[Rfam]
RNA: Peptidase-S11 RNA
RNA sequence: CGUAUGAUAGCGCAGCCAGCCCGCGUCGCAUCAGGCCUGACGCCGGCGGCCUGUGUUACAACACAGCGACAAACCUCCUCACCGGUAUUU
Numbered sequence: 001c002g003u004a005u006g007a008u009a010g011c012g013c014a015g016c017c018a019g020c021c022c023g024c025g026u027c028g029c030a031u032c033a034g035g036c037c038u039g040a041c042g043c044c045g046g047c048g049g050c051c052u053g054u055g056u057u058a059c060a061a062c063a064c065a066g067c068g069a070c071a072a073a074c075c076u077c078c079u080c081a082c083c084g085g086u087a088u089u090u
Base pairs, nucleotide, nucleotide: 015050016049017048019047020046021045023043024042025041026040027039051066052065053064054063055062056061